[Rfam]
Nucleotides: 190
Stems, first nucleotide, its partner, number of pairs: 002189001006185004011180005017175003032156001034154002037151003041148002060132003064128004076121006088109002093105004
Number, partner (000 for none) and nucleotide at each position: 001000a002189g003000u004000c005000a006185u007184c008183u009182g010000a011180g012179u013178u014177g015176u016000u017175c018174g019173u020000a021000a022000g023000u024000u025000u026000g027000c028000u029000u030000u031000u032156u033000a034154a035153u036000u037151u038150g039149g040000g041148c042147c043000u044000a045000a046000c047000a048000c049000u050000c051000u052000u053000u054000g055000a056000u057000c058000a059000a060132g061131g062130g063000a064128g065127c066126c067125c068000a069000a070000u071000g072000g073000g074000u075000u076121u077120u078119c079118u080117u081116g082000c083000a084000g085000c086000g087000u088109a089108c090000a091000c092000g093105c094104c095103u096102u097000a098000u099000a100000u101000g102096a103095a104094g105093g106000a107000c108089g109088u110000a111000c112000a113000a114000a115000a116081c117080a118079a119078g120077a121076a122000a123000c124000a125067g126066g127065g128064c129000a130062c131061c132060c133000a134000c135000c136000u137000g138000u139000a140000u141000a142000u143000a144000a145000c146000a147042g148041g149039c150038c151037g152000a153035a154034u155000g156032a157000u158000c159000a160000a161000g162000c163000u164000a165000u166000u167000a168000u169000a170000a171000c172000u173019a174018c175017g176015g177014c178013a179012a180011u181000a182009c183008g184007g185006a186000c187000u188000c189002u190000a

Rfam assigns this 190-nucleotide RNA from Staphylococcus aureus to the family "6S / SsrS RNA". About the family: E. coli 6S RNA was the first non coding RNA to be sequenced, but its function was unknown until recently. It consists of 184 nucleotides that fold into an extended hairpin structure with a large single-stranded internal bulge. It is one of the family's seed sequences.